[Rfam]
RNA: mir-1684 microRNA precursor family
RNA sequence: GGGUUUGAAAGGAGAGCUCUGCUUCCUCAUACAUACCCAUCUUUUCUACAGAAAAAUAUGAGGAAAUGGAACUCUCCUUCCAUUCUU
Numbered sequence: 001g002g003g004u005u006u007g008a009a010a011g012g013a014g015a016g017c018u019c020u021g022c023u024u025c026c027u028c029a030u031a032c033a034u035a036c037c038c039a040u041c042u043u044u045u046c047u048a049c050a051g052a053a054a055a056a057u058a059u060g061a062g063g064a065a066a067u068g069g070a071a072c073u074c075u076c077c078u079u080c081c082a083u084u085c086u087u
Stems, first nucleotide, its partner, number of pairs: 002086002006082002009079008018070004023065009034054001037051001040048001